[Rfam]
RNA: c-di-GMP-II-GAG riboswitch aptamer
RNA sequence: UGAAGAGCAGGAGGCAGUGAACCGUCUUCCGCAACGCGGGCGCCUGGAAGACGGGGAGCCAGUGGCGCGACCGGCCUCGUCCGCG
Number, nucleotide and partner (000 for none) at each position: 001u085002g084003a000004a000005g081006a080007g000008c000009a077010g076011g075012a000013g060014g059015c058016a000017g000018u000019g000020a000021a000022c054023c053024g052025u051026c050027u049028u048029c047030c000031g000032c000033a000034a000035c000036g000037c000038g072039g071040g068041c067042g066043c065044c064045u000046g000047g029048a028049a027050g026051a025052c024053g023054g022055g000056g000057a000058g015059c014060c013061a000062g000063u000064g044065g043066c042067g041068c040069g000070a000071c039072c038073g000074g000075c011076c010077u009078c000079g000080u006081c005082c000083g000084c002085g001